This 78-nucleotide RNA sequence from Albula goreensis belongs to the Rfam family "Small nucleolar RNA SNORD26".
Taxonomically the source falls in Albula (Eukaryota, Craniata, Albulidae, Albulinae).
Clan: SNORD26 clan.
A reference for the family is Tycowski et al. (1996), "A mammalian gene with introns instead of exons generating stable RNA products", Nature.
The family's consensus secondary structure was predicted with PFOLD.
RNA sequence: CUACUGUGAUGAUCACUUGAACUCUCUCUUACUGAAUCCAGAUUUUUGAAGAAACUCCUUUACCAGAUUCUGAGUAGC
Numbered sequence: 001c002u003a004c005u006g007u008g009a010u011g012a013u014c015a016c017u018u019g020a021a022c023u024c025u026c027u028c029u030u031a032c033u034g035a036a037u038c039c040a041g042a043u044u045u046u047u048g049a050a051g052a053a054a055c056u057c058c059u060u061u062a063c064c065a066g067a068u069u070c071u072g073a074g075u076a077g078c
Stems, first nucleotide, its partner, number of pairs: 001077004